Shown here is a 132-nucleotide RNA sequence from Rhynchospora breviuscula, a member of the family "Small nucleolar RNA snoR138". The base pairs follow the family's consensus structure, which was predicted with mfold. For this family Rfam cites "Mining small RNA sequencing data: a new approach to identify small nucleolar RNAs in Arabidopsis" (Chen and Wu, Nucleic Acids Res, 2009). NCBI's taxonomy places the organism under Eukaryota, Streptophyta, Magnoliopsida, Poales, Rhynchospora. A search with the family's covariance model found it, with a score of 45 bits.

RNA sequence: AUUGUCCCUUGAAUAACUAGUUGCUUUUAUUCCUGUUUGCAUCUAGUUCAGACGGGGGCAUAAAUUUAAUUGAAUUCUUUUUGAGGGAAGGGAGCUCCACCAUGCUUCUUUCUUAAGCGGAUUCAUACAAGC
Numbered sequence: 001a002u003u004g005u006c007c008c009u010u011g012a013a014u015a016a017c018u019a020g021u022u023g024c025u026u027u028u029a030u031u032c033c034u035g036u037u038u039g040c041a042u043c044u045a046g047u048u049c050a051g052a053c054g055g056g057g058g059c060a061u062a063a064a065u066u067u068a069a070u071u072g073a074a075u076u077c078u079u080u081u082u083g084a085g086g087g088a089a090g091g092g093a094g095c096u097c098c099a100c101c102a103u104g105c106u107u108c109u110u111u112c113u114u115a116a117g118c119g120g121a122u123u124c125a126u127a128c129a130a131g132c
Stems, first nucleotide, its partner, number of pairs: 003060005009055001015048006022041001024039001071125006078117003083112003087109001089106002093103001